The record is a 62-nucleotide RNA sequence from Enterobacter sp. 638, which matches "Pseudomonas sRNA P26" in Rfam.
RNA sequence: ACCCUUCCGGUUGCAGCCUGAGAAAUUAGGCUGAUGGCUGGUGACUUUUUAGUCACCAGCCU
Numbered sequence: 001a002c003c004c005u006u007c008c009g010g011u012u013g014c015a016g017c018c019u020g021a022g023a024a025a026u027u028a029g030g031c032u033g034a035u036g037g038c039u040g041g042u043g044a045c046u047u048u049u050u051a052g053u054c055a056c057c058a059g060c061c062u
Stems, first nucleotide, its partner, number of pairs: 014033005036061010
The family's RNA type in Rfam is non-coding RNA gene. The organism belongs to Enterobacter, within Bacteria. Rfam describes the family as follows. This small RNA (sRNA) was computationally identified in the genome of the opportunistic pathogen Pseudomonas aeruginosa and its expression verified by northern blot analysis. P26 is conserved across many Gammaproteobacteria species and appears to be consistently located between the DNA directed RNA polymerase (beta subunit) and 50S ribosomal protein L7/L12 genes.